Rfam assigns this 146-nucleotide RNA sequence from Pseudomonas mangiferae to the family "PrrF RNA". A search with the family's covariance model found it, with a score of 144 bits. Rfam 15.1 lists 107 matches to the family in 85 species. Rfam links the family to the GO term sRNA-mediated gene silencing. PrrF RNA is a small RNA involved in iron homeostasis and is found exclusively in Pseudomonas species.
RNA sequence: UUGACUCUGCAAUGAGAAUGGUUAUUAUUAACUCAACUGGUCGCGAGAUCAGCCGAUAAAAUGAGGCCCAUUCGUUGGACUUCAGAUUAUCUCCUCAUCAGGCUAAUCACGGUUAUUGACCCGGCACUUUGCCGGGUCUUUUUUUG
Numbered sequence: 001u002u003g004a005c006u007c008u009g010c011a012a013u014g015a016g017a018a019u020g021g022u023u024a025u026u027a028u029u030a031a032c033u034c035a036a037c038u039g040g041u042c043g044c045g046a047g048a049u050c051a052g053c054c055g056a057u058a059a060a061a062u063g064a065g066g067c068c069c070a071u072u073c074g075u076u077g078g079a080c081u082u083c084a085g086a087u088u089a090u091c092u093c094c095u096c097a098u099c100a101g102g103c104u105a106a107u108c109a110c111g112g113u114u115a116u117u118g119a120c121c122c123g124g125c126a127c128u129u130u131g132c133c134g135g136g137u138c139u140u141u142u143u144u145u146g
Stems, first nucleotide, its partner, number of pairs: 034055001037052006062084005067077001093102003118138008